[Rfam]
RNA sequence: UUGUGUGUGAGGAGCAAGUUUUAAAAUCAAUAGCACUUGGAGUGGAAACAUGGUAACACUUCAGGUGCUUUUGAUUUUGU
Numbered sequence: 001u002u003g004u005g006u007g008u009g010a011g012g013a014g015c016a017a018g019u020u021u022u023a024a025a026a027u028c029a030a031u032a033g034c035a036c037u038u039g040g041a042g043u044g045g046a047a048a049c050a051u052g053g054u055a056a057c058a059c060u061u062c063a064g065g066u067g068c069u070u071u072u073g074a075u076u077u078u079g080u
Stems, first nucleotide, its partner, number of pairs: 026075005033068002040062002042059003
RNA: Cyano-1 RNA